[Rfam]
RNA sequence: CUUCACUACUAGGGGUGCCCGGAUUUGGGGCUGAGAGAAAAACGGUACGUUUUUUAACCCUUUGGACCUGAUCUGGAUCAUACCAGCGUAGGAAAGUAGUAUGUUAGCGGA
Numbered sequence: 001c002u003u004c005a006c007u008a009c010u011a012g013g014g015g016u017g018c019c020c021g022g023a024u025u026u027g028g029g030g031c032u033g034a035g036a037g038a039a040a041a042a043c044g045g046u047a048c049g050u051u052u053u054u055u056a057a058c059c060c061u062u063u064g065g066a067c068c069u070g071a072u073c074u075g076g077a078u079c080a081u082a083c084c085a086g087c088g089u090a091g092g093a094a095a096g097u098a099g100u101a102u103g104u105u106a107g108c109g110g111a
Stems, first nucleotide, its partner, number of pairs: 006099005011061004017031004038054007067092004073086004

Record summary: The family of this 111-nucleotide RNA from Bacillus sp. T33-2 is "TPP riboswitch aptamer (THI element)". Rfam links the family to the GO term thiamine pyrophosphate binding.